The family of this 88-nucleotide RNA sequence from Clostridium fungisolvens is "c-di-GMP-I riboswitch aptamer". The base pairs follow the family's consensus structure, which is taken from published work. The source organism's lineage runs through Bacteria, Bacillati, Eubacteriales, Clostridiaceae and Clostridium. A search with the family's covariance model found it, with a score of 90 bits. GEMM was predicted in a large-scale screen for bacterial structured RNA regulatory elements.

RNA sequence: CAUAGAUAAAGGCAAAUUUAUUGAAAGAUAAAGACGCAAAGCUACGGGCCUAAGGUAUUUUAAAUACUAAGGUAGCCGGGUUACCUAA
Numbered sequence: 001c002a003u004a005g006a007u008a009a010a011g012g013c014a015a016a017u018u019u020a021u022u023g024a025a026a027g028a029u030a031a032a033g034a035c036g037c038a039a040a041g042c043u044a045c046g047g048g049c050c051u052a053a054g055g056u057a058u059u060u061u062a063a064a065u066a067c068u069a070a071g072g073u074a075g076c077c078g079g080g081u082u083a084c085c086u087a088a
Stems, first nucleotide, its partner, number of pairs: 012037002017032006040082004045078003048073003055067004